[Rfam]
RNA: Ribosomal protein L10 leader
RNA sequence: GUGGUUAAAAACCAAUUGCCGAAGACAGUAGGUUUUGCAUAUGAUUCAUAUGUGAAGUAAGCAUUAACAUCGCCUACCGAGGGAGUUAUUUAUAUAUGACUAUUAGUGCCUCUCUGUUUUCGCAGGGAGUUUUUUUAUGAAUAA
Numbered sequence: 001g002u003g004g005u006u007a008a009a010a011a012c013c014a015a016u017u018g019c020c021g022a023a024g025a026c027a028g029u030a031g032g033u034u035u036u037g038c039a040u041a042u043g044a045u046u047c048a049u050a051u052g053u054g055a056a057g058u059a060a061g062c063a064u065u066a067a068c069a070u071c072g073c074c075u076a077c078c079g080a081g082g083g084a085g086u087u088a089u090u091u092a093u094a095u096a097u098g099a100c101u102a103u104u105a106g107u108g109c110c111u112c113u114c115u116g117u118u119u120u121c122g123c124a125g126g127g128a129g130u131u132u133u134u135u136u137a138u139g140a141a142u143a144a
Stems, first nucleotide, its partner, number of pairs: 028077006110129008
Dot-bracket structure: ...........................((((((......................................))))))................................((((((((....))))))))...............